Shown here is a 39-nucleotide RNA from Chitinophaga flava, a member of the family "DUF805b RNA". The organism belongs to Chitinophaga, within Bacteria. The match comes from Rfam's covariance-model search (38 bits). Pairs were carried over by alignment from the consensus structure, which is taken from published work.

RNA sequence: AUGGAGUAUGCCGAAAAUCCAUUUUCCAAAGAGUAGGCA
Number, nucleotide and partner (000 for none) at each position: 001a000002u021003g020004g019005a018006g000007u000008a000009u000010g038011c037012c036013g000014a000015a000016a000017a000018u005019c004020c003021a002022u000023u000024u000025u000026c000027c000028a000029a000030a000031g000032a000033g000034u000035a000036g012037g011038c010039a000